[Rfam]
About this RNA
A member of the RNA family "Bacterial small subunit ribosomal RNA" from Chitinophaga solisilvae, 560 nucleotides of a longer RNA. The organism belongs to Chitinophaga, within Bacteria. A search with the family's covariance model found it, with a score of 1536 bits. The base pairs follow the family's consensus structure, which is taken from published work.
RNA sequence: ACAAUGGAGAGUUUGAUCCUGGCUCAGGAUGAACGCUAGCGGCAGGCCUAAUACAUGCAAGUCGAGGGGCAGCACAGGUAGCAAUACUGGGUGGCGACCGGCAAACGGGUGCGGAACACGUACGCAACCUUCCUUCAAGCGGGGGAUAGCCCAGAGAAAUUUGGAUUAAUACCCCAUAGGAAUGUAGUCUCGCAUGAGACAGCAUUUAAAGAUUUAUUACUUGAAGAUGGGCGUGCGUCUGAUUAGGUAGUUGGUGAGGUAACGGCUCACCAAGCCGACGAUCAGUAACUGGCGUGAGAGCGCGACCAGUCACACGGGCACUGAGACACGGGCCCGACUCCUACGGGAGGCAGCAGUAAGGAAUAUUGGUCAAUGGACGAAAGUCUGAACCAGCCAUGCCGCGUGGAGGAUGAAGGCCCUCUGGGUUGUAAACUUCUUUUAUCUGGGACGAAACACUUCCUUUCUAGGGAGCUUGACGGUACCAGGUGAAUAAGCACCGGCUAACUCCGUGCCAGCAGCCGCGGUAAUACGGAGGGUGCAAGCGUUAUCCGGAUUCACUG
Numbered sequence: 001a002c003a004a005u006g007g008a009g010a011g012u013u014u015g016a017u018c019c020u021g022g023c024u025c026a027g028g029a030u031g032a033a034c035g036c037u038a039g040c041g042g043c044a045g046g047c048c049u050a051a052u053a054c055a056u057g058c059a060a061g062u063c064g065a066g067g068g069g070c071a072g073c074a075c076a077g078g079u080a081g082c083a084a085u086a087c088u089g090g091g092u093g094g095c096g097a098c099c100g101g102c103a104a105a106c107g108g109g110u111g112c113g114g115a116a117c118a119c120g121u122a123c124g125c126a127a128c129c130u131u132c133c134u135u136c137a138a139g140c141g142g143g144g145g146a147u148a149g150c151c152c153a154g155a156g157a158a159a160u161u162u163g164g165a166u167u168a169a170u171a172c173c174c175c176a177u178a179g180g181a182a183u184g185u186a187g188u189c190u191c192g193c194a195u196g197a198g199a200c201a202g203c204a205u206u207u208a209a210a211g212a213u214u215u216a217u218u219a220c221u222u223g224a225a226g227a228u229g230g231g232c233g234u235g236c237g238u239c240u241g242a243u244u245a246g247g248u249a250g251u252u253g254g255u256g257a258g259g260u261a262a263c264g265g266c267u268c269a270c271c272a273a274g275c276c277g278a279c280g281a282u283c284a285g286u287a288a289c290u291g292g293c294g295u296g297a298g299a300g301c302g303c304g305a306c307c308a309g310u311c312a313c314a315c316g317g318g319c320a321c322u323g324a325g326a327c328a329c330g331g332g333c334c335c336g337a338c339u340c341c342u343a344c345g346g347g348a349g350g351c352a353g354c355a356g357u358a359a360g361g362a363a364u365a366u367u368g369g370u371c372a373a374u375g376g377a378c379g380a381a382a383g384u385c386u387g388a389a390c391c392a393g394c395c396a397u398g399c400c401g402c403g404u405g406g407a408g409g410a411u412g413a414a415g416g417c418c419c420u421c422u423g424g425g426u427u428g429u430a431a432a433c434u435u436c437u438u439u440u441a442u443c444u445g446g447g448a449c450g451a452a453a454c455a456c457u458u459c460c461u462u463u464c465u466a467g468g469g470a471g472c473u474u475g476a477c478g479g480u481a482c483c484a485g486g487u488g489a490a491u492a493a494g495c496a497c498c499g500g501c502u503a504a505c506u507c508c509g510u511g512c513c514a515g516c517a518g519c520c521g522c523g524g525u526a527a528u529a530c531g532g533a534g535g536g537u538g539c540a541a542g543c544g545u546u547a548u549c550c551g552g553a554u555u556c557a558c559u560g
Stems, first nucleotide, its partner, number of pairs: 009025005027550004032546006039402006045395002047360001052358003056355003061102003066099002069095002075090001077088004109313003118238008128230002133226007141175004149166001151164005181206005187200001189198003211218002239285003246276003251273008288310004292303004315336005338349004366392001368391003374387005405436004415427004441487006450477001456471003494539005505534005515522002